[Rfam]
RNA sequence: CUCUUCUCGUGAGCACCGCUCUGUCCAGCAGUGGCAGUGUACGGAUUCGCAUGAGAAGUAGAGCAAACUCGCAGUUUAACAGGCAGCUACCUAGUGGGAGUUGCCCAUGUCUGAUGUGAAACAGUU
Numbered sequence: 001c002u003c004u005u006c007u008c009g010u011g012a013g014c015a016c017c018g019c020u021c022u023g024u025c026c027a028g029c030a031g032u033g034g035c036a037g038u039g040u041a042c043g044g045a046u047u048c049g050c051a052u053g054a055g056a057a058g059u060a061g062a063g064c065a066a067a068c069u070c071g072c073a074g075u076u077u078a079a080c081a082g083g084c085a086g087c088u089a090c091c092u093a094g095u096g097g098g099a100g101u102u103g104c105c106c107a108u109g110u111c112u113g114a115u116g117u118g119a120a121a122c123a124g125u126u
Base pairs, nucleotide, nucleotide: 003058004057005056006055007054008053013050014049016044017043021037022036023035024034025033069119070118071117072116073115087100088099090097091096
The record is a 126-nucleotide RNA sequence from Larimichthys crocea, which matches "Small nucleolar RNA SNORA75" in Rfam.
U23 belongs to the H/ACA class of snoRNAs. snoRNAs bind a number of proteins (including dyskerin, Gar1p and Nop10p in the case of the H/ACA class) to form snoRNP complexes. This class are thought to guide the sites of modification of uridines to pseudouridines by forming direct base pairing interactions with substrate RNAs. Targets include ribosomal and spliceosomal RNAs as well as the Trypanosoma spliced leader RNA (SL RNA) as possibly other, still unknown cellular RNAs.
Rfam links the family to the GO terms RNA processing and nucleolus.
By type it is an H/ACA-box small nucleolar RNA.
Taxonomically the source falls in Larimichthys (Eukaryota, Teleostomi, Neopterygii, Sciaenidae).
Pairs were carried over by alignment from the consensus structure, which was predicted with PFOLD.